[Rfam]
RNA sequence: AUACUUACCUGACAGGGGAGACACCAUGAUCACCCAGGUGGUUUUCCCAUGGUGAGGCUCGCCUCUCGUAUUCCGGGCGUGCUGACCCCUGUGAUCUCCCCAAAUACGGGAAACUCGACUGCAUCUUC
Numbered sequence: 001a002u003a004c005u006u007a008c009c010u011g012a013c014a015g016g017g018g019a020g021a022c023a024c025c026a027u028g029a030u031c032a033c034c035c036a037g038g039u040g041g042u043u044u045u046c047c048c049a050u051g052g053u054g055a056g057g058c059u060c061g062c063c064u065c066u067c068g069u070a071u072u073c074c075g076g077g078c079g080u081g082c083u084g085a086c087c088c089c090u091g092u093g094a095u096c097u098c099c100c101c102a103a104a105u106a107c108g109g110g111a112a113a114c115u116c117g118a119c120u121g122c123a124u125c126u127u128c
Stems, first nucleotide, its partner, number of pairs: 013121003016048006023042005049090001051088002054086001056083003060079005092117003095113001097111001099109002
This 128-nucleotide RNA sequence from Crocodylus porosus belongs to the Rfam family "U1 spliceosomal RNA". The family's consensus secondary structure is taken from published work. Rfam classes the family as a spliceosomal small nuclear RNA. The match comes from Rfam's covariance-model search (79 bits). Gene Ontology terms of the family: U1 snRNP, mRNA 5'-splice site recognition and pre-mRNA 5'-splice site binding. Lineage of the source: Eukaryota > Gnathostomata > Tetrapoda > Sauria > Crocodylus.